[Rfam]
The record is a 76-nucleotide RNA from Ornithorhynchus anatinus, which matches "mir-92 microRNA precursor family" in Rfam.
The source organism's lineage runs through Eukaryota, Craniata, Vertebrata, Teleostomi and Ornithorhynchus.
Pairs were carried over by alignment from the consensus structure, which was predicted with PFOLD.
For this family Rfam cites "miRNPs: a novel class of ribonucleoproteins containing numerous microRNAs" (Mourelatos et al., Genes Dev, 2002).
RNA sequence: CUUUCUAUGCAGGUUGGGAUCAGUGGAAAUGCUGUUUGCCUUUGGUAUUGCACUUGUCCCAGCCUGUUGAGAUUAC
Numbered sequence: 001c002u003u004u005c006u007a008u009g010c011a012g013g014u015u016g017g018g019a020u021c022a023g024u025g026g027a028a029a030u031g032c033u034g035u036u037u038g039c040c041u042u043u044g045g046u047a048u049u050g051c052a053c054u055u056g057u058c059c060c061a062g063c064c065u066g067u068u069g070a071g072a073u074u075a076c
Stems, first nucleotide, its partner, number of pairs: 004072003009067006016060005022054003026051001028049007